Shown here is a 108-nucleotide RNA from Capsicum baccatum, a member of the family "Plant small nucleolar RNA R71".
Rfam 15.1 lists 278,378 matches to the family in 216 species.
The base pairs follow the family's consensus structure, which was predicted with PFOLD.
RNA sequence: GUCUGAUGGUGGGAGGGAAAUCUCUAAGACGAGAUUGGAAUCUCUCCCAUUCUUGAUAUAAUUUUCACCUAUUUUCUUCUUAAAACUUAAAAUCUCACUUCUCAACUU
Number, nucleotide and partner (000 for none) at each position: 001g108002u000003c000004u105005g103006a102007u000008g000009g000010u000011g000012g000013g000014a000015g000016g000017g000018a000019a000020a000021u000022c000023u000024c000025u000026a000027a000028g000029a000030c000031g000032a000033g000034a000035u000036u000037g000038g000039a000040a000041u000042c000043u000044c000045u000046c000047c000048c000049a000050u000051u000052c000053u000054u000055g000056a000057u000058a000059u000060a074061a072062u000063u000064u000065u000066c000067a000068c000069c000070u000071a000072u061073u000074u060075u000076c000077u000078u000079c000080u000081u000082a000083a000084a000085a000086c000087u000088u000089a000090a000091a000092a000093u000094c000095u000096c000097a000098c000099u000100u000101c000102u006103c005104a000105a004106c000107u000108u001